[Rfam]
RNA sequence: UUAUUUUAAACGCUGAAUCCGUAUGGAACGGGAGACCCAAACAAAUAGGGGUGAAUCCAUAGCAGAUGCUUUGGUAGGGUUAAGCUCUUUCGACCCGAAUCCGUCAGCUAAUCUCGUAAGCGUUGGAAGAGAAGGUGA
Numbered sequence: 001u002u003a004u005u006u007u008a009a010a011c012g013c014u015g016a017a018u019c020c021g022u023a024u025g026g027a028a029c030g031g032g033a034g035a036c037c038c039a040a041a042c043a044a045a046u047a048g049g050g051g052u053g054a055a056u057c058c059a060u061a062g063c064a065g066a067u068g069c070u071u072u073g074g075u076a077g078g079g080u081u082a083a084g085c086u087c088u089u090u091c092g093a094c095c096c097g098a099a100u101c102c103g104u105c106a107g108c109u110a111a112u113c114u115c116g117u118a119a120g121c122g123u124u125g126g127a128a129g130a131g132a133a134g135g136u137g138a
Stems, first nucleotide, its partner, number of pairs: 011122004018027003028117006038048001049102003057074003077096004